[Rfam]
RNA sequence: GGACGUCCGCGUAACUGGCGAGAAAGAUGGGGCACCAUCGGGGAGCGUGGGCAUUAGCCGCCGCUCGCCUGGGCAUCUUCA
Numbered sequence: 001g002g003a004c005g006u007c008c009g010c011g012u013a014a015c016u017g018g019c020g021a022g023a024a025a026g027a028u029g030g031g032g033c034a035c036c037a038u039c040g041g042g043g044a045g046c047g048u049g050g051g052c053a054u055u056a057g058c059c060g061c062c063g064c065u066c067g068c069c070u071g072g073g074c075a076u077c078u079u080c081a
Stems, first nucleotide, its partner, number of pairs: 003054001005052008015042002017069005027038004060074003

The record is an 81-nucleotide sequence from Novosphingobium sp. CF614, which matches "ZMP/ZTP riboswitch aptamer (pfl RNA motif)" in Rfam.